[Rfam]
RNA: Nuclear RNase P
Organism: Dichomitus squalens
RNA sequence: ACAGCACCAAAGCCGCGAGGCUCACGCCGCACAGGACAGUCCGGUGUCGCCACCCGGACUUCCACACUCGUGAGCGGGCUAAGGUCUGAGCAUUCCAAUUCCUCUCGAUCGACUCUAGCUGGGUCCAGUCUGAACGGACUGAGCGUCGCACCAGAAAUACAGUACCACCGGGGCCUCGUGGGCACCCAGUGCCUGCGCAGCCUCCCUUUCGAGGGUCCCAGAGAAGCGCCUCGGUGCAGAGGGACGGACUGCGGACUUUGGGAUACGGCGCAGGGAUCGGGCGUGCGCCCUCUCCUCGUGGGCCUCGGGGUAGCUACCCUAGGCCGACAGGAUGGCGACGUCCUUCAGUGCACUUCGCGGCUCGCGCAUAUAGGGGCCUCGUGCCUCUGCGAAACUCGAUUCAGACUACUCUGGUGCUGU
Numbered sequence: 001a002c003a004g005c006a007c008c009a010a011a012g013c014c015g016c017g018a019g020g021c022u023c024a025c026g027c028c029g030c031a032c033a034g035g036a037c038a039g040u041c042c043g044g045u046g047u048c049g050c051c052a053c054c055c056g057g058a059c060u061u062c063c064a065c066a067c068u069c070g071u072g073a074g075c076g077g078g079c080u081a082a083g084g085u086c087u088g089a090g091c092a093u094u095c096c097a098a099u100u101c102c103u104c105u106c107g108a109u110c111g112a113c114u115c116u117a118g119c120u121g122g123g124u125c126c127a128g129u130c131u132g133a134a135c136g137g138a139c140u141g142a143g144c145g146u147c148g149c150a151c152c153a154g155a156a157a158u159a160c161a162g163u164a165c166c167a168c169c170g171g172g173g174c175c176u177c178g179u180g181g182g183c184a185c186c187c188a189g190u191g192c193c194u195g196c197g198c199a200g201c202c203u204c205c206c207u208u209u210c211g212a213g214g215g216u217c218c219c220a221g222a223g224a225a226g227c228g229c230c231u232c233g234g235u236g237c238a239g240a241g242g243g244a245c246g247g248a249c250u251g252c253g254g255a256c257u258u259u260g261g262g263a264u265a266c267g268g269c270g271c272a273g274g275g276a277u278c279g280g281g282c283g284u285g286c287g288c289c290c291u292c293u294c295c296u297c298g299u300g301g302g303c304c305u306c307g308g309g310g311u312a313g314c315u316a317c318c319c320u321a322g323g324c325c326g327a328c329a330g331g332a333u334g335g336c337g338a339c340g341u342c343c344u345u346c347a348g349u350g351c352a353c354u355u356c357g358c359g360g361c362u363c364g365c366g367c368a369u370a371u372a373g374g375g376g377c378c379u380c381g382u383g384c385c386u387c388u389g390c391g392a393a394a395c396u397c398g399a400u401u402c403a404g405a406c407u408a409c410u411c412u413g414g415u416g417c418u419g420u
Stems, first nucleotide, its partner, number of pairs: 001420004007414003012361007020075005039059006086404005094276003111125005126141006143271006161257003362392005368386001